Small nucleolar RNA SNORA9: a 132-nucleotide sequence from Orycteropus afer. Clan: SNORA9 clan. The base pairs follow the family's consensus structure, which was predicted with PFOLD. Rfam describes the family as follows. ACA9 is a member of the H/ACA class of snoRNA that guide the sites of modification of uridines to pseudouridines. The source organism's lineage runs through Eukaryota, Craniata, Vertebrata, Tubulidentata and Orycteropus afer.

[Rfam]
RNA sequence: UUGCAAGCCUUCAUCAUGCUUGGAUCUGAAUGGCCCUGUACUUUUCCUGUGCUUGCAAGAACAGUUUUGAAACGGUUUGAGGGCUUGCUUUACACUAUCUGCGGAGCAAGGUUAUAGAAAUUUCAGACAGUG
Numbered sequence: 001u002u003g004c005a006a007g008c009c010u011u012c013a014u015c016a017u018g019c020u021u022g023g024a025u026c027u028g029a030a031u032g033g034c035c036c037u038g039u040a041c042u043u044u045u046c047c048u049g050u051g052c053u054u055g056c057a058a059g060a061a062c063a064g065u066u067u068u069g070a071a072a073c074g075g076u077u078u079g080a081g082g083g084c085u086u087g088c089u090u091u092a093c094a095c096u097a098u099c100u101g102c103g104g105a106g107c108a109a110g111g112u113u114a115u116a117g118a119a120a121u122u123u124c125a126g127a128c129a130g131u132g
Stems, first nucleotide, its partner, number of pairs: 003056006018041001022036002025033002068125005084110005090104002
Dot-bracket structure: ..((((((.........(...((.((.....)).))....).........))))))...........(((((...........(((((.((...........)).)))))..........))))).......